[Rfam]
RNA sequence: UGUCUCCUCCAUGUCUCCUGAUAUGGAUUCAGCCCGCCAAACAUGGCGGGCUUUUUUUC
Numbered sequence: 001u002g003u004c005u006c007c008u009c010c011a012u013g014u015c016u017c018c019u020g021a022u023a024u025g026g027a028u029u030c031a032g033c034c035c036g037c038c039a040a041a042c043a044u045g046g047c048g049g050g051c052u053u054u055u056u057u058u059c
Base pairs, nucleotide, nucleotide: 008027009026010025011024012023013022014021015020031052032051033050034049035048036047037046038045
A member of the RNA family "Betaproteobacteria toxic small RNA" from Paraburkholderia megapolitana, 59 nucleotides long. Lineage of the source: Bacteria > Pseudomonadati > Burkholderiales > Burkholderiaceae > Paraburkholderia. The base pairs follow the family's consensus structure, which was predicted with WAR. Overexpression in amino aid rich medium attenuates growth, suggesting role in repressing amino acid intake and metabolism. On this family, see Kimelman et al., Genome Res 2012: "A vast collection of microbial genes that are toxic to bacteria".